[Rfam]
The family of this 100-nucleotide sequence from Pectinatus brassicae is "THF (Tetrahydrofolate) riboswitch aptamer". The family has 101 seed sequences and 747 matches in Rfam 15.1.
RNA sequence: AGCAGAGUAAGUGAUUGCGCGUUAAGUGCCAGAUGGACGGGGAGUUGACAUCUGGACGAAAAACUAAAUGUUUGCGGUACAAUCAUUGCAUCCCGCUGCU
Numbered sequence: 001a002g003c004a005g006a007g008u009a010a011g012u013g014a015u016u017g018c019g020c021g022u023u024a025a026g027u028g029c030c031a032g033a034u035g036g037a038c039g040g041g042g043a044g045u046u047g048a049c050a051u052c053u054g055g056a057c058g059a060a061a062a063a064c065u066a067a068a069u070g071u072u073u074g075c076g077g078u079a080c081a082a083u084c085a086u087u088g089c090a091u092c093c094c095g096c097u098g099c100u
Stems, first nucleotide, its partner, number of pairs: 001100005010087008019078001020076003026057002029055007040093003044089001061073004
Background:
NCBI's taxonomy places the organism under Bacteria, Negativicutes, Selenomonadales, Selenomonadaceae, Pectinatus. Pairs were carried over by alignment from the consensus structure, which is taken from published work.